[Rfam]
RNA: L25-Gammaproteobacteria ribosomal protein leader
RNA sequence: GGAAUCGCUGGGUCGCCUGCGAUUCU
Numbered sequence: 001g002g003a004a005u006c007g008c009u010g011g012g013u014c015g016c017c018u019g020c021g022a023u024u025c026u
Stems, first nucleotide, its partner, number of pairs: 001026008010017002